Overview
Shown here is a 42-nucleotide RNA sequence from Blastochloris viridis, a member of the family "L31-Actinobacteria ribosomal protein leader". NCBI's taxonomy places the organism under Bacteria, Pseudomonadota, Alphaproteobacteria, Hyphomicrobiales, Blastochloris. Pairs were carried over by alignment from the consensus structure, which is taken from published work.
RNA sequence: CCGAUUCCGGUUCACGUCGUUCUGCAUGGCGAUCCGGCGUUC
Number, nucleotide and partner (000 for none) at each position: 001c000002c000003g042004a041005u000006u000007c037008c036009g035010g034011u000012u000013c000014a000015c031016g030017u029018c028019g027020u026021u000022c000023u000024g000025c000026a020027u019028g018029g017030c016031g015032a000033u000034c010035c009036g008037g007038c000039g000040u000041u004042c003